The record is an 83-nucleotide RNA sequence from Physcomitrium patens, which matches "Small nucleolar RNA snoR8a" in Rfam. It is annotated as a C/D-box small nucleolar RNA. The literature on the family includes a 2001 paper in RNA by Brown et al., "Multiple snoRNA gene clusters from Arabidopsis". Lineage of the source: Eukaryota > Bryophyta > Bryopsida > Funariidae > Physcomitrium. Its family is annotated with RNA processing and nucleolus in the Gene Ontology.
[Rfam]
RNA sequence: UCCGUGCAAUGAUUUCAAAUAAUUCCUCGUACUGAAUGCUAAUGGCUUGACAGACUACGAAACACCCAUAGAAUAUGAGCACG
Numbered sequence: 001u002c003c004g005u006g007c008a009a010u011g012a013u014u015u016c017a018a019a020u021a022a023u024u025c026c027u028c029g030u031a032c033u034g035a036a037u038g039c040u041a042a043u044g045g046c047u048u049g050a051c052a053g054a055c056u057a058c059g060a061a062a063c064a065c066c067c068a069u070a071g072a073a074u075a076u077g078a079g080c081a082c083g
Stems, first nucleotide, its partner, number of pairs: 003083004
Dot-bracket structure: ..((((.........................................................................))))